[Rfam]
RNA sequence: GCCAUUCUUCAGGGAUCGGUGAAAUUCCGUACCGGCGGUGAAAGCCCGCGAGCCUUAAAAGGGUUGAUCCGGUGAAAGUCCGGGGCCGACAGUUAAAGUCUGGAUGGGAGAAGAAUGUU
Numbered sequence: 001g002c003c004a005u006u007c008u009u010c011a012g013g014g015a016u017c018g019g020u021g022a023a024a025u026u027c028c029g030u031a032c033c034g035g036c037g038g039u040g041a042a043a044g045c046c047c048g049c050g051a052g053c054c055u056u057a058a059a060a061g062g063g064u065u066g067a068u069c070c071g072g073u074g075a076a077a078g079u080c081c082g083g084g085g086c087c088g089a090c091a092g093u094u095a096a097a098g099u100c101u102g103g104a105u106g107g108g109a110g111a112a113g114a115a116u117g118u119u
Stems, first nucleotide, its partner, number of pairs: 003117008017029003031099002033088002035049004044086002052064003068084005090102003
RNA: FMN riboswitch aptamer (RFN element)
Organism: Thermoclostridium stercorarium